[Rfam]
RNA: Small nucleolar RNA U49
RNA sequence: UCCCUAUGAGGAAGCGAACCCAAAAGAUAUGAAGUGUCGUAUGACACUCAAACCCAGCAGUUGAUAU
Numbered sequence: 001u002c003c004c005u006a007u008g009a010g011g012a013a014g015c016g017a018a019c020c021c022a023a024a025a026g027a028u029a030u031g032a033a034g035u036g037u038c039g040u041a042u043g044a045c046a047c048u049c050a051a052a053c054c055c056a057g058c059a060g061u062u063g064a065u066a067u
Stems, first nucleotide, its partner, number of pairs: 014061002031049001033048004